[Rfam]
RNA sequence: UGGGAGAUUGAUACUCAGACAUGGAGAAAGUCUGCCGUGUCUGACACUAUAUCUCCCUAUAGUGACCCUGCCUUCUGAUGACCGGGACGAAAUGAGAGAAAUCGUAACGGACAGAUACGAGGCAGACAGGA
Numbered sequence: 001u002g003g004g005a006g007a008u009u010g011a012u013a014c015u016c017a018g019a020c021a022u023g024g025a026g027a028a029a030g031u032c033u034g035c036c037g038u039g040u041c042u043g044a045c046a047c048u049a050u051a052u053c054u055c056c057c058u059a060u061a062g063u064g065a066c067c068c069u070g071c072c073u074u075c076u077g078a079u080g081a082c083c084g085g086g087a088c089g090a091a092a093u094g095a096g097a098g099a100a101a102u103c104g105u106a107a108c109g110g111a112c113a114g115a116u117a118c119g120a121g122g123c124a125g126a127c128a129g130g131a
Base pairs, nucleotide, nucleotide: 002057003056004055005054006053007052015044016043017042018041022037023036024035068125069124070123071122072121073120074119082110083109084108087105088104089103090102